[Rfam]
RNA sequence: GCGAGCCAGAGCACGAGACGCUGCCAAGGCAGAGGAAACUCCUCCCUCCAUACAGGAGUGCGACCCGGAGAUGGGUGGCCGGAGACGGCCGGCAACGGCACAGAAACGAAUCCGCACCGGGGCACUGUGAAGGCAGGGCCGGAGGUUCCCGGGAAAGGAAUGGAACGACCGCCCCGCAUGGAGCAAGGCCAAACAGAACCCCAGGUGCCUGUACCAGGUUCAGGUUGGCCGCAAAGCGAAAUAUCGUGUGAACAAAAGGAGGGUUACUACUGGCACGC
Numbered sequence: 001g002c003g004a005g006c007c008a009g010a011g012c013a014c015g016a017g018a019c020g021c022u023g024c025c026a027a028g029g030c031a032g033a034g035g036a037a038a039c040u041c042c043u044c045c046c047u048c049c050a051u052a053c054a055g056g057a058g059u060g061c062g063a064c065c066c067g068g069a070g071a072u073g074g075g076u077g078g079c080c081g082g083a084g085a086c087g088g089c090c091g092g093c094a095a096c097g098g099c100a101c102a103g104a105a106a107c108g109a110a111u112c113c114g115c116a117c118c119g120g121g122g123c124a125c126u127g128u129g130a131a132g133g134c135a136g137g138g139c140c141g142g143a144g145g146u147u148c149c150c151g152g153g154a155a156a157g158g159a160a161u162g163g164a165a166c167g168a169c170c171g172c173c174c175c176g177c178a179u180g181g182a183g184c185a186a187g188g189c190c191a192a193a194c195a196g197a198a199c200c201c202c203a204g205g206u207g208c209c210u211g212u213a214c215c216a217g218g219u220u221c222a223g224g225u226u227g228g229c230c231g232c233a234a235a236g237c238g239a240a241a242u243a244u245c246g247u248g249u250g251a252a253c254a255a256a257a258g259g260a261g262g263g264u265u266a267c268u269a270c271u272g273g274c275a276c277g278c
Stems, first nucleotide, its partner, number of pairs: 001278003005274005010268002012248005021032004037265003041262005046183004051213005058179005063076005077090005091174002096171003111159003115153001117152005132140002187230004196221005